The record is a 68-nucleotide RNA sequence from Ramphastos sulfuratus, which matches "FIE3 (ftz instability element 3') element" in Rfam. A reference for the family is Riedl and Jacobs-Lorena (1996), "Determinants of Drosophila fushi tarazu mRNA instability", Mol Cell Biol. The organism belongs to Ramphastos, within Eukaryota. A search with the family's covariance model found it, with a score of 41 bits. Its family is annotated with mRNA destabilization in the Gene Ontology. The fushi tarazu gene is essential for the establishment of the Drosophila embryonic body plan. When first expressed in early embryogenesis, fushi tarazu mRNA is uniformly distributed over most of the embryo. Subsequently, fushi tarazu mRNA expression rapidly evolves into a pattern of seven stripes that encircle the embryo. The instability of fushi tarazu mRNA is probably crucial for attaining this localised pattern of expression. Experiments provide evidence for at least two destabilising elements in the fushi tarazu mRNA, one located within the 5' one-third of the mRNA and the other near the 3' end (termed FIE3 for ftz instability element 3'). The FIE3 lies within a 201-nucleotide sequence just upstream of the polyadenylation signal and can act autonomously to destabilise a heterologous mRNA. Further deletion constructs identified an essential 68-nucleotide element within the FIE3.

[Rfam]
RNA sequence: UGAUACUGCUUAAGAACUGGGAGAUUGACAAAUAUCUUAUCUUUUAACAUGCUUUUGUAAUUUCUAUC
Dot-bracket structure: ..................(((((((.(........)..))))))).......................